[Rfam]
Overview: Shown here is a 178-nucleotide RNA sequence from Clostridium sp. SM-530-WT-3G, a member of the family "T-box leader". Rfam describes the family as follows. Uncharged tRNA acts as the effector for transcription antitermination of genes in the T-box leader family. The family's consensus secondary structure is taken from published work. The family's RNA type in Rfam is cis-regulatory leader. The match comes from Rfam's covariance-model search (117 bits).
RNA sequence: AUUUAAGCGAUGAAUAGGAAAAGUAGAAUUAUUAAGGAUAUUAAGAGAGGAAGUGGCUGGUGAAAACUUCUUGCCUGGGUAAUUUCGAAGCUACCUAUGAGCUAUAAAUUUUCUGAGUGAUGUAUUGUUUAGUACAUAAUUAGGGUGGUACCGCGGAAUUCUAACUUUCGUCCCUUGU
Numbered sequence: 001a002u003u004u005a006a007g008c009g010a011u012g013a014a015u016a017g018g019a020a021a022a023g024u025a026g027a028a029u030u031a032u033u034a035a036g037g038a039u040a041u042u043a044a045g046a047g048a049g050g051a052a053g054u055g056g057c058u059g060g061u062g063a064a065a066a067c068u069u070c071u072u073g074c075c076u077g078g079g080u081a082a083u084u085u086c087g088a089a090g091c092u093a094c095c096u097a098u099g100a101g102c103u104a105u106a107a108a109u110u111u112u113c114u115g116a117g118u119g120a121u122g123u124a125u126u127g128u129u130u131a132g133u134a135c136a137u138a139a140u141u142a143g144g145g146u147g148g149u150a151c152c153g154c155g156g157a158a159u160u161c162u163a164a165c166u167u168u169c170g171u172c173c174c175u176u177g178u
Stems, first nucleotide, its partner, number of pairs: 007102002015097004026086003030082001039073002049071006120137007142175004153171005